[Rfam]
RNA sequence: CCCGCCCCCUGAUGGGGGCGACACUCCGCCAUGAAUCACUCCCCUGUGAGGAACUACUGUCUUCACGCAGAAAGCGUCUAGCCAUGGCGUUAGUAUGAGUGUCGUACAGCCUCCAGGCCCCCCCCUCCCGGGAGAGCCAUAGUGGUCUGCGGAACCGGUGAGUACACCGGAAUUACCGGAAAGACUGGGUCCUUUCUUGGAUAAACCCACUCUAUGUCCGGUCAUUUGGGCGUGCCCCCGCAAGACUGCUAGCCGAGUAGCGUUGGGUUGCGAAAGGCCUUGUGGUACUGCCUGAUAGGGUGCUUGCGAGUGCCCCGGGAGGUCUCGUAGACCGUGCAUCAUGAGCACAAAUC
Numbered sequence: 001c002c003c004g005c006c007c008c009c010u011g012a013u014g015g016g017g018g019c020g021a022c023a024c025u026c027c028g029c030c031a032u033g034a035a036u037c038a039c040u041c042c043c044c045u046g047u048g049a050g051g052a053a054c055u056a057c058u059g060u061c062u063u064c065a066c067g068c069a070g071a072a073a074g075c076g077u078c079u080a081g082c083c084a085u086g087g088c089g090u091u092a093g094u095a096u097g098a099g100u101g102u103c104g105u106a107c108a109g110c111c112u113c114c115a116g117g118c119c120c121c122c123c124c125c126u127c128c129c130g131g132g133a134g135a136g137c138c139a140u141a142g143u144g145g146u147c148u149g150c151g152g153a154a155c156c157g158g159u160g161a162g163u164a165c166a167c168c169g170g171a172a173u174u175a176c177c178g179g180a181a182a183g184a185c186u187g188g189g190u191c192c193u194u195u196c197u198u199g200g201a202u203a204a205a206c207c208c209a210c211u212c213u214a215u216g217u218c219c220g221g222u223c224a225u226u227u228g229g230g231c232g233u234g235c236c237c238c239c240g241c242a243a244g245a246c247u248g249c250u251a252g253c254c255g256a257g258u259a260g261c262g263u264u265g266g267g268u269u270g271c272g273a274a275a276g277g278c279c280u281u282g283u284g285g286u287a288c289u290g291c292c293u294g295a296u297a298g299g300g301u302g303c304u305u306g307c308g309a310g311u312g313c314c315c316c317g318g319g320a321g322g323u324c325u326c327g328u329a330g331a332c333c334g335u336g337c338a339u340c341a342u343g344a345g346c347a348c349a350a351a352u353c
Stems, first nucleotide, its partner, number of pairs: 004019006043117004048113004057109004064101003068097002073091006124322009134254001136253002140251009149241004155170006171226003176221005183212002186209004190201003228237003256289004261284002265280005290301004302313002334348004

A member of the RNA family "Hepatitis C virus internal ribosome entry site" from Orthohepacivirus hominis, 353 nucleotides long. For this family Rfam cites "The Coding Region of the HCV Genome Contains a Network of Regulatory RNA Structures" (Pirakitikulr et al., Mol Cell, 2016). Its family is annotated with ribosome binding in the Gene Ontology.